The family of this 59-nucleotide RNA from Affinirhizobium straminoryzae is "COG3860 RNA". The match comes from Rfam's covariance-model search (65 bits). The source organism's lineage runs through Bacteria, Pseudomonadati, Pseudomonadota, Rhizobiaceae and Affinirhizobium. It is annotated as a cis-regulatory element.

RNA sequence: GGGUCCGCAGUUCACCCAGGCGUCACCGCCCGAUCCCGCAUCGGGAGCUAAACCUGCCC
Dot-bracket structure: ((((.........))))...........((((((.....))))))..............